Shown here is an 89-nucleotide RNA from Rummeliibacillus sp. TYF005, a member of the family "c-di-GMP-I riboswitch aptamer". On this family, see Sudarsan et al., Science 2008: "Riboswitches in Eubacteria Sense the Second Messenger Cyclic Di-GMP". Its family is annotated with cyclic-di-GMP binding in the Gene Ontology.
[Rfam]
Nucleotides: 089
Base pairs, nucleotide, nucleotide: 012037013036017032018031019030020029021028022027040083041082042081043080047079048078049075050074051073056069057068058067
Number, partner (000 for none) and nucleotide at each position: 001000a002000c003000a004000a005000c006000a007000a008000a009000a010000g011000g012037g013036u014000a015000c016000a017032g018031u019030c020029a021028g022027g023000g024000a025000a026000a027022c028021u029020u030019g031018g032017u033000g034000u035000c036013a037012c038000a039000a040083a041082g042081c043080u044000a045000c046000a047079g048078g049075g050074g051073c052000u053000a054000a055000g056069g057068a058067u059000u060000u061000u062000a063000u064000g065000a066000u067058a068057u069056c070000u071000a072000u073051g074050u075049c076000a077000g078048c079047c080043a081042g082041c083040u084000a085000c086000c087000g088000u089000u